A member of the RNA family "mir-248 microRNA precursor family" from Caenorhabditis briggsae, 95 nucleotides long. Rfam 15.1 lists 5 matches to the family in 5 species.
[Rfam]
Nucleotides: 095
Base pairs, nucleotide, nucleotide: 001095002094003093004092005091013082014081015080016079018077019076020075021074023072024071025070026069027068030064031062032061034060035059036058037057038056039055040054042052
Number, partner (000 for none) and nucleotide at each position: 001095a002094a003093c004092u005091g006000a007000u008000a009000u010000u011000c012000a013082c014081g015080a016079u017000a018077a019076g020075c021074g022000c023072u024071a025070u026069c027068c028000u029000u030064c031062c032061g033000u034060u035059g036058u037057a038056u039055u040054c041000a042052a043000g044000c045000u046000u047000g048000g049000u050000u051000g052042u053000c054040g055039a056038g057037u058036a059035c060034a061032c062031g063000u064030g065000c066000u067000c068027g069026g070025a071024u072023a073000a074021c075020g076019c077018u078000c079016a080015u081014c082013g083000a084000g085000u086000c087000u088000g089000a090000u091005c092004g093003g094002u095001u